Annotation:
Shown here is a 172-nucleotide RNA from bacterium 0.1xD8-71, a member of the family "Lysine riboswitch aptamer". The match comes from Rfam's covariance-model search (98 bits). Rfam's curators write: Riboswitches are metabolite binding domains within certain messenger RNAs that serve as precision sensors for their corresponding targets. The family has 47 seed sequences and 3,224 matches in Rfam 15.1.
[Rfam]
RNA sequence: GAGUUUGAUAGAGGUUGCGUUUUUUAUCAGUAGAGAUGCGGAUGCGGCAGGCGCAAAAGAAGUAUCAGGAAAGGAAAAGACGCCGAAAGGGGAGGCACCUGUUCGUCUCUGCCUUGGGCAUACAGUUAAGAGCUGUAUGACUGUCAUCUUUUGAUGGGGCGCUAUCCAGACC
Dot-bracket structure: ......(((((.....(((((((((.........(((((......................)))))........)))))))))...((((.(.((.((......)))).).))))((.((((((((.....)))))))).)).(((((....)))))....)))))......